This 387-nucleotide RNA sequence from Ornithinimicrobium tianjinense belongs to the Rfam family "Bacterial RNase P class A".

Nucleotides: 387
Stems, first nucleotide, its partner, number of pairs: 001383010012325007020048002023045004053370003057367005062228004069261004074224005080092004094108001095106004109219002114217002116213003131158002133154005139148003166184006186208001187206008232282004241273006253265004289308008
Number, partner (000 for none) and nucleotide at each position: 001383u002382g003381a004380g005379u006378c007377g008376g009375c010374c011000a012325g013324g014323c015322g016321g017320c018319c019000g020048c021047g022000u023045c024044g025043g026042a027000a028000c029000c030000c031000c032000u033000c034000a035000g036000g037000g038000g039000a040000u041000c042026u043025c044024c045023g046000c047021c048020g049000a050000g051000g052000a053370a054369c055368g056000u057367c058366c059365g060364g061363g062228c063227u064226c065225c066000a067000c068000a069261g070260g071259g072258c073000a074224a075223g076222g077221u078220g079000a080092u081091g082090g083089c084000u085000a086000a087000c088000g089083g090082c091081c092080a093000c094108c095106c096105g097104g098103g099000g100000u101000g102000a103098c104097c105096c106095g107000c108094g109219g110218g111000a112000c113000a114217g115216u116213g117212c118211c119000a120000c121000a122000g123000a124000a125000a126000a127000c128000a129000g130000a131158c132157c133154g134153c135152c136151c137150g138000c139148c140147g141146c142000c143000u144000c145000g146141g147140c148139g149000a150137c151136g152135g153134g154133u155000c156000a157132g158131g159000g160000u161000g162000a163000a164000a165000c166184g167183g168182u169181g170180g171179u172000g173000u174000a175000a176000g177000a178000g179171a180170c181169c182168a183167c184166c185000a186208g187206c188205a189204c190203g191202c192201c193200a194199g195000g196000u197000g198000a199194c200193u201192g202191g203190c204189g205188u206187g207000g208186c209000u210000a211118g212117g213116u214000a215000a216115a217114c218110c219109c220078c221077a222076c223075c224074u225065g226064g227063a228062g229000c230000a231000a232282g233281g234280c235279c236000a237000g238000a239000c240000a241273g242272u243271g244270c245269g246268c247000g248000u249000c250000c251000g252000a253265g254264g255263g256262c257000u258072g259071c260070c261069c262256g263255c264254c265253c266000g267000a268246g269245c270244g271243c272242a273241c274000g275000g276000g277000u278000a279235g280234g281233c282232c283000g284000c285000u286000g287000g288000a289308g290307g291306c292305g293304a294303c295302c296301g297000g298000c299000a300000a301296c302295g303294g304293u305292c306291g307290u308289c309000c310000u311000a312000g313000a314000u315000g316000g317000a318000u319018g320017g321016u322015c323014g324013c325012c326000a327000c328000c329000u330000c331000c332000g333000c334000a335000g336000u337000g338000c339000c340000g341000g342000c343000g344000a345000c346000g347000g348000c349000g350000c351000g352000g353000a354000g355000g356000g357000a358000c359000a360000g361000a362000a363061c364060c365059c366058g367057g368055c369054g370053u371000a372000c373000c374010g375009g376008c377007c378006g379005g380004c381003u382002c383001a384000u385000c386000c387000a
About the family: Ribonuclease P (RNase P) is a ubiquitous endoribonuclease, found in archaea, bacteria and eukarya as well as chloroplasts and mitochondria. It is annotated as a ribozyme.